[Rfam]
RNA sequence: CUGCACAGUGCUAACCCCGGGCUUGUCGGAUUAACUUCCUGAAGAAGGAAGCCCCAAUGCCUGUGCUAGAUCCAGCAUGCCAUUCAGUGUUGCAGGUCAUGACGAAUCUUGUGAUUGGUCUGUGUCAAAGCAAUGGAUACAUAU
Numbered sequence: 001c002u003g004c005a006c007a008g009u010g011c012u013a014a015c016c017c018c019g020g021g022c023u024u025g026u027c028g029g030a031u032u033a034a035c036u037u038c039c040u041g042a043a044g045a046a047g048g049a050a051g052c053c054c055c056a057a058u059g060c061c062u063g064u065g066c067u068a069g070a071u072c073c074a075g076c077a078u079g080c081c082a083u084u085c086a087g088u089g090u091u092g093c094a095g096g097u098c099a100u101g102a103c104g105a106a107u108c109u110u111g112u113g114a115u116u117g118g119u120c121u122g123u124g125u126c127a128a129a130g131c132a133a134u135g136g137a138u139a140c141a142u143a144u
Stems, first nucleotide, its partner, number of pairs: 003066006010060002019054005024048001026045002080136005088127002091124006097114003

Source information:
The record is a 144-nucleotide RNA from Zea mays, which matches "small nucleolar RNA snoR134" in Rfam. The base pairs follow the family's consensus structure, which was predicted with RNAalifold. The literature on the family includes a 2009 paper in Nucleic Acids Res by Chen and Wu, "Mining small RNA sequencing data: a new approach to identify small nucleolar RNAs in Arabidopsis". Rfam classes the family as an H/ACA-box small nucleolar RNA.